This 93-nucleotide RNA sequence from Roseovarius gaetbuli belongs to the Rfam family "Rhodo-rpoB RNA". The family's consensus secondary structure is taken from published work. It is annotated as a cis-regulatory element. Taxonomically the source falls in Roseovarius (Bacteria, Pseudomonadati, Rhodobacterales, Roseobacteraceae). The match comes from Rfam's covariance-model search (73 bits).
[Rfam]
RNA sequence: UGAUCGGGAGGCCGUAUUUGGGACGAUGGCCGUGAAUGGAUCAAACCAGGCCCUCUCGUAUGGCCGCGGCGCUGGAGCCCGACAGCGCGCGCG
Dot-bracket structure: (((((....((((((..........)))))).......))))).....................((((.(((((........)))))..))))
Numbered sequence: 001u002g003a004u005c006g007g008g009a010g011g012c013c014g015u016a017u018u019u020g021g022g023a024c025g026a027u028g029g030c031c032g033u034g035a036a037u038g039g040a041u042c043a044a045a046c047c048a049g050g051c052c053c054u055c056u057c058g059u060a061u062g063g064c065c066g067c068g069g070c071g072c073u074g075g076a077g078c079c080c081g082a083c084a085g086c087g088c089g090c091g092c093g
Stems, first nucleotide, its partner, number of pairs: 001043005010031006065093004070087005